[Rfam]
RNA sequence: GUCGGUCUUCGGUAGUGGCUUUUCGGCACGACGGUCCGGAGAGCUUCGAUCGAUGACCGCC
Numbered sequence: 001g002u003c004g005g006u007c008u009u010c011g012g013u014a015g016u017g018g019c020u021u022u023u024c025g026g027c028a029c030g031a032c033g034g035u036c037c038g039g040a041g042a043g044c045u046u047c048g049a050u051c052g053a054u055g056a057c058c059g060c061c
Stems, first nucleotide, its partner, number of pairs: 001061001003059005009053005017045010028035002
The record is a 61-nucleotide RNA from Nocardia transvalensis, which matches "Actino-pnp RNA" in Rfam.
The source organism's lineage runs through Bacteria, Bacillati, Actinomycetota, Actinomycetes and Nocardia.
Pairs were carried over by alignment from the consensus structure, which is taken from published work.
By type it is a cis-regulatory element.
The match comes from Rfam's covariance-model search (56 bits).